Shown here is a 99-nucleotide sequence from Leucobacter soli, a member of the family "mraW RNA". The organism belongs to Leucobacter, within Bacteria. The family has 45 seed sequences and 851 matches in Rfam 15.1. Pairs were carried over by alignment from the consensus structure, which is taken from published work.

RNA sequence: UUCUGACCUCGGGCCCGUGGUUUCUCGUUCACCACCCUGACGCACUUCCCCGGCGGCAGGUGGGUAGACGAGGAACCAGGGGGCCGAGAUCGCCCGACG
Number, nucleotide and partner (000 for none) at each position: 001u000002u000003c000004u000005g000006a000007c000008c000009u000010c086011g085012g084013g000014c082015c081016c080017g000018u000019g077020g076021u000022u074023u073024c072025u071026c070027g069028u068029u067030c000031a065032c064033c063034a000035c000036c060037c059038u058039g057040a000041c055042g054043c053044a000045c000046u000047u000048c000049c000050c000051c000052g000053g043054c042055g041056g000057c039058a038059g037060g036061u000062g000063g033064g032065u031066a000067g029068a028069c027070g026071a025072g024073g023074a022075a000076c020077c019078a000079g000080g016081g015082g014083g000084c012085c011086g010087a000088g000089a000090u000091c000092g000093c000094c000095c000096g000097a000098c000099g000